[Rfam]
The record is an 80-nucleotide RNA sequence from Papilio machaon, which matches "mir-750 microRNA precursor family" in Rfam. Taxonomically the source falls in Papilio (Eukaryota, Bilateria, Glossata, Obtectomera).
RNA sequence: UCCACGUCUGAGUUGGACGGGGGAUCUAGACAGUUUAUUGUAUAGGCCUGCCAGAUCUAUCUUUCCAGCUCACGCGUGGA
Numbered sequence: 001u002c003c004a005c006g007u008c009u010g011a012g013u014u015g016g017a018c019g020g021g022g023g024a025u026c027u028a029g030a031c032a033g034u035u036u037a038u039u040g041u042a043u044a045g046g047c048c049u050g051c052c053a054g055a056u057c058u059a060u061c062u063u064u065c066c067a068g069c070u071c072a073c074g075c076g077u078g079g080a
Stems, first nucleotide, its partner, number of pairs: 001080007009072009019062003022058006029051001031050003

Rfam 15.1 lists 33 matches to the family in 33 species. Gene Ontology terms of the family: RISC complex and miRNA-mediated post-transcriptional gene silencing.